RNA sequence: AGAAGCCGACACGGUAAGGUCUAGCCAACCGCCGUUAUCCAGCCUUGGAGCCGAAGCCGUGAGGCUAGGUUUAAGCGUAGGUAAGAAACUAUGCGAGCCGUAAUGCGAAAGCGUGAAGUGAUUGAAUCUCGUUAGUUUAUAUAGAAUGGAAGCCGAUACCCUCACCUCGGUAGCAGGUAAUAAUACUUGGUCGUAAAGGGCAAGAACAAGUAGGUUCCAUCGGGGUCUUAGAGCA
Numbered sequence: 001a002g003a004a005g006c007c008g009a010c011a012c013g014g015u016a017a018g019g020u021c022u023a024g025c026c027a028a029c030c031g032c033c034g035u036u037a038u039c040c041a042g043c044c045u046u047g048g049a050g051c052c053g054a055a056g057c058c059g060u061g062a063g064g065c066u067a068g069g070u071u072u073a074a075g076c077g078u079a080g081g082u083a084a085g086a087a088a089c090u091a092u093g094c095g096a097g098c099c100g101u102a103a104u105g106c107g108a109a110a111g112c113g114u115g116a117a118g119u120g121a122u123u124g125a126a127u128c129u130c131g132u133u134a135g136u137u138u139a140u141a142u143a144g145a146a147u148g149g150a151a152g153c154c155g156a157u158a159c160c161c162u163c164a165c166c167u168c169g170g171u172a173g174c175a176g177g178u179a180a181u182a183a184u185a186c187u188u189g190g191u192c193g194u195a196a197a198g199g200g201c202a203a204g205a206a207c208a209a210g211u212a213g214g215u216u217c218c219a220u221c222g223g224g225g226u227c228u229u230a231g232a233g234c235a
Stems, first nucleotide, its partner, number of pairs: 011035004018030003022203001024201002038086002042082004046077002048072005054066001056065003124227001126226006146220006152178003157172004184212006191205002
Dot-bracket structure: ..........((((...(((.[.[[..))).))))..((..(((((((((((.(.(((....)))).)))))...)).))))..)).....................................(.((((((..............(((((((((..((((........))))...))).....((((((.((.......]].])).))))))..)))))))))))))........
Annotation
This 235-nucleotide sequence from Clostridium pasteurianum belongs to the Rfam family "Group II catalytic intron D1-D4-6". Pairs were carried over by alignment from the consensus structure. Its family is annotated with Group II intron splicing in the Gene Ontology. Rfam's curators write: Group II introns are found in rRNA, tRNA and mRNA of organelles in fungi, plants and protists, and also in mRNA in bacteria.